The family of this 108-nucleotide RNA sequence from Rhododendron williamsianum is "Small nucleolar RNA snoR100".
On this family, see Marker et al., Curr Biol 2002: "Experimental RNomics: identification of 140 candidates for small non-messenger RNAs in the plant Arabidopsis thaliana".
RNA sequence: UAAUGAAGGAAGCAUGGUAAUGUUCACAGAAAUUAAAUUGGGUCUUUAGGCCUGCUCUCUCUGAUGCUAUUUGGCUUUGAUUAGUGGAUAUGGUUCUAAAGCAAAACC
Numbered sequence: 001u002a003a004u005g006a007a008g009g010a011a012g013c014a015u016g017g018u019a020a021u022g023u024u025c026a027c028a029g030a031a032a033u034u035a036a037a038u039u040g041g042g043u044c045u046u047u048a049g050g051c052c053u054g055c056u057c058u059c060u061c062u063g064a065u066g067c068u069a070u071u072u073g074g075c076u077u078u079g080a081u082u083a084g085u086g087g088a089u090a091u092g093g094u095u096c097u098a099a100a101g102c103a104a105a106a107c108c
Stems, first nucleotide, its partner, number of pairs: 012025001014023002040091001042089003050081001052079001054075003
Its family is annotated with RNA processing and nucleolus in the Gene Ontology. The family has 9 seed sequences and 1,851 matches in Rfam 15.1.